[Rfam]
RNA sequence: CCUGCGUGAGGUAGUAGGUUGUAUAGUUGGGAACUACACCAAUUCAGGCGAACUGUACAACUUGCUAGCUUUCCAGG
Numbered sequence: 001c002c003u004g005c006g007u008g009a010g011g012u013a014g015u016a017g018g019u020u021g022u023a024u025a026g027u028u029g030g031g032a033a034c035u036a037c038a039c040c041a042a043u044u045c046a047g048g049c050g051a052a053c054u055g056u057a058c059a060a061c062u063u064g065c066u067a068g069c070u071u072u073c074c075a076g077g
Base pairs, nucleotide, nucleotide: 001077002076003075004074006072008071009070010069012067013066014065015064016063017062018061019060020059021058022057023056024055025054026053027052031039043050

Source information
A member of the RNA family "let-7 microRNA precursor family" from Notodromas monacha, 77 nucleotides long. It scores 58 bits against the family's covariance model. Lineage of the source: Eukaryota > Opisthokonta > Eumetazoa > Arthropoda > Notodromas. Rfam's curators write: This family represents the microRNAs (miRNA) let-7 and mir-98. let-7 was identified from a study of developmental timing in C. elegans, and was later shown to be part of a much larger class of non-coding RNAs termed miRNAs. On this family, see Rougvie, Nat Rev Genet 2001: "Control of developmental timing in animals".